[Rfam]
RNA sequence: CGUGUGGUGUCCGGCUCUGAAUCGGAUAGCGACGCGGCCUAUUAAUGAGGU
Numbered sequence: 001c002g003u004g005u006g007g008u009g010u011c012c013g014g015c016u017c018u019g020a021a022u023c024g025g026a027u028a029g030c031g032a033c034g035c036g037g038c039c040u041a042u043u044a045a046u047g048a049g050g051u
Stems, first nucleotide, its partner, number of pairs: 001036005007030002011025004015019001
RNA: L31-Gammaproteobacteria ribosomal protein leader